[Rfam]
Nucleotides: 116
Base pairs, nucleotide, nucleotide: 002057003056004055005054006053007052014045015044016043018041019040020039021038023037026035070109071108072107074105077102078101079100085094086093087092
Number, partner (000 for none) and nucleotide at each position: 001000a002057g003056g004055u005054c006053a007052u008000u009000u010000c011000a012000a013000a014045g015044a016043g017000g018041g019040c020039u021038u022000g023037u024000g025000g026035g027000a028000c029000c030000a031000a032000c033000a034000c035026c036000a037023g038021g039020a040019g041018c042000a043016c044015u045014u046000a047000a048000u049000g050000c051000u052007g053006u054005g055004a056003c057002c058000a059000a060000a061000u062000a063000c064000u065000a066000c067000a068000g069000u070109u071108c072107u073000g074105c075000g076000u077102a078101g079100g080000a081000u082000g083000u084000a085094a086093u087092a088000c089000u090000g091000u092087u093086a094085u095000g096000u097000u098000u099000c100079c101078c102077u103000g104000a105074g106000g107072a108071g109070a110000c111000a112000u113000a114000a115000g116000a